This 79-nucleotide RNA sequence from Paludibacterium purpuratum belongs to the Rfam family "Glycine riboswitch aptamer".
Rfam's curators write: This family represents the bacterial glycine riboswitch. Glycine riboswitches usually consist of two metabolite-binding aptamers domains with similar structures in tandem. The aptamers cooperatively bind glycine to regulate the expression of downstream genes.
RNA sequence: CUCUGGAGAGCGGUGCCGCAGCAUCCACCGAAGGGGCUAACGGUCGAAAGACCGGAAAAUCUCAGGUGUCAGGACAGAG
Numbered sequence: 001c002u003c004u005g006g007a008g009a010g011c012g013g014u015g016c017c018g019c020a021g022c023a024u025c026c027a028c029c030g031a032a033g034g035g036g037c038u039a040a041c042g043g044u045c046g047a048a049a050g051a052c053c054g055g056a057a058a059a060u061c062u063c064a065g066g067u068g069u070c071a072g073g074a075c076a077g078a079g
Stems, first nucleotide, its partner, number of pairs: 001079005012025004027067003030063002034061002041054005
Dot-bracket structure: (((((......((((......)))).(((((..((.....(((((....))))).....)))).))).......)))))

A search with the family's covariance model found it, with a score of 38 bits. The source organism's lineage runs through Bacteria, Betaproteobacteria, Neisseriales, Chromobacteriaceae and Paludibacterium.